The record is a 133-nucleotide sequence from Acinonyx jubatus, which matches "Small nucleolar RNA SNORA70" in Rfam.

[Rfam]
RNA sequence: CUGCAGCCAAUUAAGCUAACUGUGCUCUUUCCUUGUGGGGCCCAGUGUGCAAUGGCUGUGAACAGCAGCCUCCUCAGUAGUGUAUGCAGCCUGUUGGUUGUAUGGGUUGCCCUGAGGGACCUUGGAGACAGUU
Numbered sequence: 001c002u003g004c005a006g007c008c009a010a011u012u013a014a015g016c017u018a019a020c021u022g023u024g025c026u027c028u029u030u031c032c033u034u035g036u037g038g039g040g041c042c043c044a045g046u047g048u049g050c051a052a053u054g055g056c057u058g059u060g061a062a063c064a065g066c067a068g069c070c071u072c073c074u075c076a077g078u079a080g081u082g083u084a085u086g087c088a089g090c091c092u093g094u095u096g097g098u099u100g101u102a103u104g105g106g107u108u109g110c111c112c113u114g115a116g117g118g119a120c121c122u123u124g125g126a127g128a129c130a131g132u133u
Base pairs, nucleotide, nucleotide: 002051003050004049005048019046020045021044022043025040026039027038077120078119087109088108089107090106091105092104
A reference for the family is Charette and Gray (2000), "Pseudouridine in RNA: what, where, how, and why", IUBMB Life. Pairs were carried over by alignment from the consensus structure, which was predicted with PFOLD. Rfam links the family to the GO terms nucleolus and RNA processing. snoRNA U70 seems to be exclusive to mammals and is a member of the H/ACA class of snoRNA which contain H (ANANNA) and ACA box motifs. H/ACA box snoRNAs are involved in the conversion of uridines to pseudouridines (5-ribosyluracil) a constituent of structural RNAs (transfer, ribosomal, small nuclear, and small nucleolar).